[Rfam]
RNA sequence: UUCACAGAAUGAUGGCACCUUCCUAAACCCUCAUGGGUGGUGUCUGAGAGGCGUGAA
Numbered sequence: 001u002u003c004a005c006a007g008a009a010u011g012a013u014g015g016c017a018c019c020u021u022c023c024u025a026a027a028c029c030c031u032c033a034u035g036g037g038u039g040g041u042g043u044c045u046g047a048g049a050g051g052c053g054u055g056a057a
Stems, first nucleotide, its partner, number of pairs: 001057005014044006021037003027034001
A member of the RNA family "Selenocysteine insertion sequence 1", 57 nucleotides long. Pairs were carried over by alignment from the consensus structure, which is taken from published work. Gene Ontology term of the family: selenocysteine incorporation. It is annotated as a cis-regulatory element. The sequence is in the family's curated seed alignment.